Shown here is a 67-nucleotide sequence from Xylanibacter ruminicola, a member of the family "Bacteroidetes FopS (family of paralogous sRNAs)". About the family: The RNA-binding protein RbpB and BTncRNA_FopS sRNA are involved in the post-transcription regulation of polysaccharide utilisation loci (PUL). FopS sRNAs function as post-transcriptional repressors by binding to the vicinity of the start codon of the first mRNA of target PUL polycistrons, typically corresponding to the cognate SusC homolog, impeding translation of the respective glycan transporter. It is one of the family's seed sequences. The family's RNA type in Rfam is small RNA. Gene Ontology term of the family: sRNA-mediated gene silencing. On this family, see Ruttiger et al., Nat Commun 2025: "The global RNA-binding protein RbpB is a regulator of polysaccharide utilization in Bacteroides thetaiotaomicron".
RNA sequence: GUGUUUUUCAUAGUAUUAGAUUUAAGGUUAACAAAGGUUAGGGUCACAGCGGUGACCCUUUUUUUAU
Number, nucleotide and partner (000 for none) at each position: 001g000002u000003g000004u000005u000006u000007u000008u000009c000010a000011u000012a000013g000014u000015a000016u000017u000018a000019g000020a000021u000022u000023u000024a000025a000026g000027g000028u000029u000030a000031a000032c000033a000034a000035a000036g000037g000038u000039u000040a000041g058042g057043g056044u055045c054046a053047c052048a000049g000050c000051g000052g047053u046054g045055a044056c043057c042058c041059u000060u000061u000062u000063u000064u000065u000066a000067u000